[Rfam]
MIR2655 microRNA precursor family: a 252-nucleotide sequence from Trifolium subterraneum.
Taxonomically the source falls in Trifolium (Eukaryota, Magnoliopsida, Pentapetalae, Papilionoideae).
The match comes from Rfam's covariance-model search (142 bits).
Rfam links the family to the GO terms miRNA-mediated post-transcriptional gene silencing and RISC complex.

RNA sequence: CCCUUAUCUUUUAAAAGUUUCAAGUUGGUCCCUUAUCUUUAUUUUAGGUUUCAAGUUGGUCUCUUCCGUCAAUUUUUUAACUAUUUUCGUUAAGUUUUGACACGUGGCAAACUAAUUUGGACACGUGGCACACUUAGAUAGAUGACACGUGUCCAAAUUUAACGGUAACAGUACAAAAAUUGACAGAAGGGACCAACUUGAAACCUAAAAAAAAGAUAAGGGACCAAUUUGAAACUUUUAAAAGAUAAGGGA
Numbered sequence: 001c002c003c004u005u006a007u008c009u010u011u012u013a014a015a016a017g018u019u020u021c022a023a024g025u026u027g028g029u030c031c032c033u034u035a036u037c038u039u040u041a042u043u044u045u046a047g048g049u050u051u052c053a054a055g056u057u058g059g060u061c062u063c064u065u066c067c068g069u070c071a072a073u074u075u076u077u078u079a080a081c082u083a084u085u086u087u088c089g090u091u092a093a094g095u096u097u098u099g100a101c102a103c104g105u106g107g108c109a110a111a112c113u114a115a116u117u118u119g120g121a122c123a124c125g126u127g128g129c130a131c132a133c134u135u136a137g138a139u140a141g142a143u144g145a146c147a148c149g150u151g152u153c154c155a156a157a158u159u160u161a162a163c164g165g166u167a168a169c170a171g172u173a174c175a176a177a178a179a180u181u182g183a184c185a186g187a188a189g190g191g192a193c194c195a196a197c198u199u200g201a202a203a204c205c206u207a208a209a210a211a212a213a214a215g216a217u218a219a220g221g222g223a224c225c226a227a228u229u230u231g232a233a234a235c236u237u238u239u240a241a242a243a244g245a246u247a248a249g250g251g252a
Base pairs, nucleotide, nucleotide: 002250003249004248005247006246007245008244023229024228025227027225028224029223031221032220033219034218035217036216037215038214039213040212042210043209045207046206047205